[Rfam]
RNA sequence: AGCAGGGGGAAGGGAAGCGGGAAGAAUUUAUCAACAUACCUUUCCCCAACGUGCCGCCAAACCGGAGGUGAGGGGGCAAUACCUUGU
Numbered sequence: 001a002g003c004a005g006g007g008g009g010a011a012g013g014g015a016a017g018c019g020g021g022a023a024g025a026a027u028u029u030a031u032c033a034a035c036a037u038a039c040c041u042u043u044c045c046c047c048a049a050c051g052u053g054c055c056g057c058c059a060a061a062c063c064g065g066a067g068g069u070g071a072g073g074g075g076g077c078a079a080u081a082c083c084u085u086g087u
Stems, first nucleotide, its partner, number of pairs: 008044006016028002053077003057073002061069002